[Rfam]
RNA sequence: UUUGGCGGCAGGACUUAGCCCACAUGUGAACACUGUGCAUUCUCUGCUUGUUCACAGUGGUUAAGUUCUGCCGCCCCA
Numbered sequence: 001u002u003u004g005g006c007g008g009c010a011g012g013a014c015u016u017a018g019c020c021c022a023c024a025u026g027u028g029a030a031c032a033c034u035g036u037g038c039a040u041u042c043u044c045u046g047c048u049u050g051u052u053c054a055c056a057g058u059g060g061u062u063a064a065g066u067u068c069u070g071c072c073g074c075c076c077c078a
Stems, first nucleotide, its partner, number of pairs: 011068010026055007